The family of this 66-nucleotide sequence from Medicago truncatula is "MIR2629 microRNA precursor family". It is one of the family's seed sequences. NCBI's taxonomy places the organism under Eukaryota, Magnoliopsida, eudicotyledons, Fabaceae, Medicago. The family's consensus secondary structure was predicted with RNAalifold. Rfam links the family to the GO terms RISC complex and miRNA-mediated post-transcriptional gene silencing.

RNA sequence: UGCUGAUGGAAACGAUGAUAGUUAACUGCCGAAGUUUUCCUCGGUAGUUAACUGCCGCUGGUUCUU
Dot-bracket structure: ...........((.(((.(((((((((((..............))))))))))).)).).))....